[Rfam]
The record is a 175-nucleotide sequence from Lactococcus hircilactis, which matches "Lysine riboswitch aptamer" in Rfam. Lineage of the source: Bacteria > Bacillati > Bacilli > Lactobacillales > Lactococcus.
RNA sequence: GAAAUCGACAGAGGUUGCAACCAAUAGGAUCCUUGAUGGAGUUUGAGCACAGCAGUGAAAUCAAGAAAAGGAGCGGUUGCCGAAAAAAUAAAGCAUGCUCAUCUUUAUUUUUGGGCAAAUGAGAAAAACUCAUUUGACUGUCACAAGAAAAACUUGUGGUGUGCUGAUCGUAUGU
Numbered sequence: 001g002a003a004a005u006c007g008a009c010a011g012a013g014g015u016u017g018c019a020a021c022c023a024a025u026a027g028g029a030u031c032c033u034u035g036a037u038g039g040a041g042u043u044u045g046a047g048c049a050c051a052g053c054a055g056u057g058a059a060a061u062c063a064a065g066a067a068a069a070g071g072a073g074c075g076g077u078u079g080c081c082g083a084a085a086a087a088a089u090a091a092a093g094c095a096u097g098c099u100c101a102u103c104u105u106u107a108u109u110u111u112u113g114g115g116c117a118a119a120u121g122a123g124a125a126a127a128a129c130u131c132a133u134u135u136g137a138c139u140g141u142c143a144c145a146a147g148a149a150a151a152a153c154u155u156g157u158g159g160u161g162u163g164c165u166g167a168u169c170g171u172a173u174g175u
Base pairs, nucleotide, nucleotide: 006170007169008168009166010165011164017080018079019078020077021076022075025072032065033064034063035062036061037060084112085111086110087109088108089107090106091105092104093103113139114138116136117135118134119133120132121131122130123129141159142158143157144156145155146154147153